Shown here is a 248-nucleotide RNA sequence from Cellulosimicrobium sp. CUA-896, a member of the family "Actinobacteria sRNA Ms_IGR-5". The organism belongs to Cellulosimicrobium, within Bacteria. The family's RNA type in Rfam is small RNA.
RNA sequence: ACACGAGAAAGGAGGUGAUCCGAGAAGUGAACUCUCUUCGGACCCGUGAGGUGGUCGCGCGCUAGUCGUCGCGCGACCGAUACGUCUCUGACGGACCGGACGCGGUGAGCCCGUGAACCGGGCGGCGCCUCCCGCGCGGGAGGCGGCCGACGGCGAGCGAGUACCACGCGACCACCGGGGCCCGCGGGAGUCGUGCCCUCGUCCAGCACGACAGGAGGAUCGCUCCUCCGGCCCGCGGGCUUCUCCGU
Numbered sequence: 001a002c003a004c005g006a007g008a009a010a011g012g013a014g015g016u017g018a019u020c021c022g023a024g025a026a027g028u029g030a031a032c033u034c035u036c037u038u039c040g041g042a043c044c045c046g047u048g049a050g051g052u053g054g055u056c057g058c059g060c061g062c063u064a065g066u067c068g069u070c071g072c073g074c075g076a077c078c079g080a081u082a083c084g085u086c087u088c089u090g091a092c093g094g095a096c097c098g099g100a101c102g103c104g105g106u107g108a109g110c111c112c113g114u115g116a117a118c119c120g121g122g123c124g125g126c127g128c129c130u131c132c133c134g135c136g137c138g139g140g141a142g143g144c145g146g147c148c149g150a151c152g153g154c155g156a157g158c159g160a161g162u163a164c165c166a167c168g169c170g171a172c173c174a175c176c177g178g179g180g181c182c183c184g185c186g187g188g189a190g191u192c193g194u195g196c197c198c199u200c201g202u203c204c205a206g207c208a209c210g211a212c213a214g215g216a217g218g219a220u221c222g223c224u225c226c227u228c229c230g231g232c233c234c235g236c237g238g239g240c241u242u243c244u245c246c247g248u
Stems, first nucleotide, its partner, number of pairs: 015058005060159004065154002068151004074145002178242011191211006